[Rfam]
RNA sequence: CCCUCCUGUACCUUCUGAGCUGACAGCAGUCUCUUCACACUGGCUCAGUUCAGCAGGAACAGGAG
Numbered sequence: 001c002c003c004u005c006c007u008g009u010a011c012c013u014u015c016u017g018a019g020c021u022g023a024c025a026g027c028a029g030u031c032u033c034u035u036c037a038c039a040c041u042g043g044c045u046c047a048g049u050u051c052a053g054c055a056g057g058a059a060c061a062g063g064a065g
Stems, first nucleotide, its partner, number of pairs: 003065004008060002011057003015053009027042004
RNA: mir-24 microRNA precursor family